[Rfam]
RNA sequence: CCAGGUAUGGUGAUAUGGUGCCGAAGACAAUAGUUGGGAAGAUCUUUGGUUCGAUAUGUUCUCUGAGUGGGGUCUUAGUUAUUGCUCUGCCUGUUCCUGUUAUUGUCUCCAAC
Numbered sequence: 001c002c003a004g005g006u007a008u009g010g011u012g013a014u015a016u017g018g019u020g021c022c023g024a025a026g027a028c029a030a031u032a033g034u035u036g037g038g039a040a041g042a043u044c045u046u047u048g049g050u051u052c053g054a055u056a057u058g059u060u061c062u063c064u065g066a067g068u069g070g071g072g073u074c075u076u077a078g079u080u081a082u083u084g085c086u087c088u089g090c091c092u093g094u095u096c097c098u099g100u101u102a103u104u105g106u107c108u109c110c111a112a113c
Stems, first nucleotide, its partner, number of pairs: 004109001007106004012101004017096002020094002036076004048062002